This 82-nucleotide RNA sequence from Dissostichus mawsoni belongs to the Rfam family "Small nucleolar RNA SNORD35". Rfam classes the family as a C/D-box small nucleolar RNA. Pairs were carried over by alignment from the consensus structure, which was predicted with PFOLD. The family has 8 seed sequences and 1,842 matches in Rfam 15.1. The match comes from Rfam's covariance-model search (58 bits). Rfam links the family to the GO terms RNA processing and nucleolus. On this family, see Nicoloso et al., J Mol Biol 1996: "Intron-encoded, antisense small nucleolar RNAs: the characterization of nine novel species points to their direct role as guides for the 2'-O-ribose methylation of rRNAs". From the family's description: U35 is a C/D box snoRNA located in intron 6 of ribosomal protein L13A and intron 3 of ribosomal protein S11 in humans and at homologous positions in mouse and chicken ribosomal protein genes.
RNA sequence: UACAAAUGAUGUUUCUCACGAUGGUCUUCCAAGCCUUCUAGGCGCUGACGAUAAUGCCUUAUGGCAACACUGAUGUAGUAGA
Number, nucleotide and partner (000 for none) at each position: 001u077002a076003c075004a074005a000006a000007u000008g000009a000010u000011g000012u000013u000014u000015c000016u000017c000018a000019c000020g000021a000022u000023g000024g000025u000026c000027u000028u000029c000030c000031a000032a000033g000034c000035c000036u000037u000038c000039u000040a000041g000042g000043c000044g000045c000046u000047g000048a000049c000050g000051a000052u000053a000054a000055u000056g000057c000058c000059u000060u000061a000062u000063g000064g000065c000066a000067a000068c000069a000070c000071u000072g000073a000074u004075g003076u002077a001078g000079u000080a000081g000082a000